[Rfam]
Bacterial large subunit ribosomal RNA: a 228-nucleotide part of an RNA from Denitrovibrio acetiphilus.
The sequence is in the family's curated seed alignment.
NCBI's taxonomy places the organism under Bacteria, Deferribacterota, Deferribacterales, Denitrovibrio, Denitrovibrio acetiphilus.
Gene Ontology terms of the family: structural constituent of ribosome and ribosome.

RNA sequence: GAGUUACGAUAUGCAGCGAGGUUAAGACGUUAGUCGAAGCCGGAGGGAAACCGAGUCUGAAUAGGGCGAUUAGUUGUAUGUUGUAGACCCGAAGCCAACCGAUCUAUCCAUGGGCAGGGUGAAGCGACGGUAAGACGUCGUGGAGGCCCGAACCGAUAUACGUUGAAAAGUGUUCGGAUGACCUGUGGAUAGGGGUGAAAGGCCAAUCAAGGUUGGUGAUAGCUGGUU
Numbered sequence: 001g002a003g004u005u006a007c008g009a010u011a012u013g014c015a016g017c018g019a020g021g022u023u024a025a026g027a028c029g030u031u032a033g034u035c036g037a038a039g040c041c042g043g044a045g046g047g048a049a050a051c052c053g054a055g056u057c058u059g060a061a062u063a064g065g066g067c068g069a070u071u072a073g074u075u076g077u078a079u080g081u082u083g084u085a086g087a088c089c090c091g092a093a094g095c096c097a098a099c100c101g102a103u104c105u106a107u108c109c110a111u112g113g114g115c116a117g118g119g120u121g122a123a124g125c126g127a128c129g130g131u132a133a134g135a136c137g138u139c140g141u142g143g144a145g146g147c148c149c150g151a152a153c154c155g156a157u158a159u160a161c162g163u164u165g166a167a168a169a170g171u172g173u174u175c176g177g178a179u180g181a182c183c184u185g186u187g188g189a190u191a192g193g194g195g196u197g198a199a200a201g202g203c204c205a206a207u208c209a210a211g212g213u214u215g216g217u218g219a220u221a222g223c224u225g226g227u228u
Stems, first nucleotide, its partner, number of pairs: 005085013020041004026035003045052002055067004088226002091223001095216006104192011115180001117149004124141006153177003158173004194204003